The family of this 72-nucleotide sequence from Medicago truncatula is "MIR2629 microRNA precursor family". Gene Ontology terms of the family: RISC complex and miRNA-mediated post-transcriptional gene silencing. It scores 60 bits against the family's covariance model.
[Rfam]
RNA sequence: UACCGAGGAUUUCCUCGACAGUUAACUGCAGUCGGUUUCUUAAUUCCUCUGCAGUUAACUGUCAAGGGGGCA
Numbered sequence: 001u002a003c004c005g006a007g008g009a010u011u012u013c014c015u016c017g018a019c020a021g022u023u024a025a026c027u028g029c030a031g032u033c034g035g036u037u038u039c040u041u042a043a044u045u046c047c048u049c050u051g052c053a054g055u056u057a058a059c060u061g062u063c064a065a066g067g068g069g070g071c072a
Stems, first nucleotide, its partner, number of pairs: 012069002015066001017063015
Dot-bracket structure: ...........((.(.(((((((((((((((.................)))))))))))))))..).))...